[Rfam]
RNA sequence: UGACGAAGUCGCAACUGGCGUUCAGAUGGUUACCAUCGGGAAGCGACUGACACGGAUUCGGCCGCUCGCCUGGGUCGCUACG
Dot-bracket structure: ......((((((..(([[[[.....((((...))))..))..))))))..........(((((...]]]]..))))).....
RNA: ZMP/ZTP riboswitch aptamer (pfl RNA motif)